This 527-nucleotide part of an RNA from Ichthyosporidium sp. belongs to the Rfam family "Microsporidia small subunit ribosomal RNA". NCBI's taxonomy places the organism under Eukaryota, Opisthokonta, Fungi, Apansporoblastina, Ichthyosporidium. The literature on the family includes a 2001 paper in Science by Yusupov et al., "Crystal structure of the ribosome at 5.5 A resolution". Gene Ontology terms of the family: ribosome and structural constituent of ribosome.
RNA sequence: UGACGGAAGAACACCACAAGGAGUGGAGUGUGCGGCUUAAUUUGACUCAACGCGGGACACCUUACCGGGCCCACGGCCACACGAGUGUGACACACGAUAGCCGAGGAGUGGUGCAUGGCCCGUUAACGACAAGUGAGUGAUCUUUGGGUUAAGUCCGUAAAUUAGUGAGACCCCAGCAAAGGACAGGUGCGCAAAGCACAGGAAGGAUGGGUCAAGGACAGGUCAGUGAUGCCCUUAGAUGGUCCGGGCUGCACGCGCACUACAGUGGUCGCCGAAAUUUAGAUAUAGAGCUAAAGGCGAUCGAGAGGGAAUGAGCUUUGGAAGAGGCUCAGGAACGUGGAAUUGCUAGUAAUCGCGGACUCAUUAAGACGCGAUGAAUACGUCCCUGUUCUUUGUACACACCGCCCGUCGUUAUCGAAUACGGUGCUCGGCGCGAGCAAGGUGAAAUCACUGAGCGAGCGCAAGGUACCGGAUCUGAUACAAGUCGUAACAAGGUAGCUGUAGGAGAACCAUUAGCAGGAUCAUAA
Numbered sequence: 001u002g003a004c005g006g007a008a009g010a011a012c013a014c015c016a017c018a019a020g021g022a023g024u025g026g027a028g029u030g031u032g033c034g035g036c037u038u039a040a041u042u043u044g045a046c047u048c049a050a051c052g053c054g055g056g057a058c059a060c061c062u063u064a065c066c067g068g069g070c071c072c073a074c075g076g077c078c079a080c081a082c083g084a085g086u087g088u089g090a091c092a093c094a095c096g097a098u099a100g101c102c103g104a105g106g107a108g109u110g111g112u113g114c115a116u117g118g119c120c121c122g123u124u125a126a127c128g129a130c131a132a133g134u135g136a137g138u139g140a141u142c143u144u145u146g147g148g149u150u151a152a153g154u155c156c157g158u159a160a161a162u163u164a165g166u167g168a169g170a171c172c173c174c175a176g177c178a179a180a181g182g183a184c185a186g187g188u189g190c191g192c193a194a195a196g197c198a199c200a201g202g203a204a205g206g207a208u209g210g211g212u213c214a215a216g217g218a219c220a221g222g223u224c225a226g227u228g229a230u231g232c233c234c235u236u237a238g239a240u241g242g243u244c245c246g247g248g249c250u251g252c253a254c255g256c257g258c259a260c261u262a263c264a265g266u267g268g269u270c271g272c273c274g275a276a277a278u279u280u281a282g283a284u285a286u287a288g289a290g291c292u293a294a295a296g297g298c299g300a301u302c303g304a305g306a307g308g309g310a311a312u313g314a315g316c317u318u319u320g321g322a323a324g325a326g327g328c329u330c331a332g333g334a335a336c337g338u339g340g341a342a343u344u345g346c347u348a349g350u351a352a353u354c355g356c357g358g359a360c361u362c363a364u365u366a367a368g369a370c371g372c373g374a375u376g377a378a379u380a381c382g383u384c385c386c387u388g389u390u391c392u393u394u395g396u397a398c399a400c401a402c403c404g405c406c407c408g409u410c411g412u413u414a415u416c417g418a419a420u421a422c423g424g425u426g427c428u429c430g431g432c433g434c435g436a437g438c439a440a441g442g443u444g445a446a447a448u449c450a451c452u453g454a455g456c457g458a459g460c461g462c463a464a465g466g467u468a469c470c471g472g473a474u475c476u477g478a479u480a481c482a483a484g485u486c487g488u489a490a491c492a493a494g495g496u497a498g499c500u501g502u503a504g505g506a507g508a509a510c511c512a513u514u515a516g517c518a519g520g521a522u523c524a525u526a527a
Base pairs, nucleotide, nucleotide: 001399002398003396004395005394007393008392009391010390011389012388013387016383017382020346022344023343024342025263027261028260029259030258031257032256033255034254035252036251041056042055043054044053065247066246067245068244069243070242071241074103075102076101077100079098085095086094087093088092107235108234110233111232112231113230116229117227118223119222120221122219123218124217129166130165132163133162134161135142136141147156148155172211173210174209175208177181184202187199188198189197190196267302268301269300270299271298272297307336312331313330314329315328316327317326318325352375353374354373355372356371357370404491407487408486410484413480414479415478416477417476419474422471423470424469425468426467427466428465431462432461433460434459437456438455441452442451443450444449496519498517499516500515501514504511505510